[Rfam]
RNA sequence: CGCAUGUUAACCAUGCAUUAAGCUUUAUGAGUGUUUACUGUGGGUAUCCAGUGAUCUGGAUUCUUACCGAGUGGCUGGUGCCAUUCUGUUUGACGCCUCCCUGUUAAACUCCUGAGAGCCGCGUUUGCGGCUCUUUUUUU
Numbered sequence: 001c002g003c004a005u006g007u008u009a010a011c012c013a014u015g016c017a018u019u020a021a022g023c024u025u026u027a028u029g030a031g032u033g034u035u036u037a038c039u040g041u042g043g044g045u046a047u048c049c050a051g052u053g054a055u056c057u058g059g060a061u062u063c064u065u066a067c068c069g070a071g072u073g074g075c076u077g078g079u080g081c082c083a084u085u086c087u088g089u090u091u092g093a094c095g096c097c098u099c100c101c102u103g104u105u106a107a108a109c110u111c112c113u114g115a116g117a118g119c120c121g122c123g124u125u126u127g128c129g130g131c132u133c134u135u136u137u138u139u140u
Stems, first nucleotide, its partner, number of pairs: 001042003014037002020034001022032003047060004069086006092105004114135009
RNA: Alphaproteobacterial sRNA BjrC1505